The family of this 247-nucleotide RNA from Arthrobacter psychrochitiniphilus is "c-di-AMP riboswitch aptamer (ydaO/yuaA leader)". Taxonomically the source falls in Arthrobacter (Bacteria, Bacillati, Actinomycetota, Micrococcales). This family represents a conserved RNA structure found upstream of the ydaO and yuaA genes in Bacillus subtilis and related genes in other bacteria.

RNA sequence: CACCGAACCUUGCCUUCGCAGCCCGGCCAGUAAUCAUUUAGGCAAGGGCGGGGGAACCACUUUUGACGGCCCAAUAGGCCGUCUUGGGGUGAAGUCCACACUCGAAUGCAAUACCCGCAACAACCCUGACGCAGCAUCCUGUUGGACUGCGCCAUGGCUAUGCGUGUGCCUAAGGGCGUAGGCCGGAUCGAAAGUUACACUCUCUGAUCCGAAUCCGACAGCUAACUUCGCAGGUGCUUUAUGUAGA
Numbered sequence: 001c002a003c004c005g006a007a008c009c010u011u012g013c014c015u016u017c018g019c020a021g022c023c024c025g026g027c028c029a030g031u032a033a034u035c036a037u038u039u040a041g042g043c044a045a046g047g048g049c050g051g052g053g054g055a056a057c058c059a060c061u062u063u064u065g066a067c068g069g070c071c072c073a074a075u076a077g078g079c080c081g082u083c084u085u086g087g088g089g090u091g092a093a094g095u096c097c098a099c100a101c102u103c104g105a106a107u108g109c110a111a112u113a114c115c116c117g118c119a120a121c122a123a124c125c126c127u128g129a130c131g132c133a134g135c136a137u138c139c140u141g142u143u144g145g146a147c148u149g150c151g152c153c154a155u156g157g158c159u160a161u162g163c164g165u166g167u168g169c170c171u172a173a174g175g176g177c178g179u180a181g182g183c184c185g186g187a188u189c190g191a192a193a194g195u196u197a198c199a200c201u202c203u204c205u206g207a208u209c210c211g212a213a214u215c216c217g218a219c220a221g222c223u224a225a226c227u228u229c230g231c232a233g234g235u236g237c238u239u240u241a242u243g244u245a246g247a
Base pairs, nucleotide, nucleotide: 001236002235003234004233008047009046010045011044012043013042014041015040048231049230050229051228052227053226058086059085087216088215089214095182096181185210186209187208188207189206190205
Dot-bracket structure: ((((...((((((((........................))))))))((((((....((.........................))(((.....((....................................................................................))..((((((..............))))))...))).........)))))).))))...........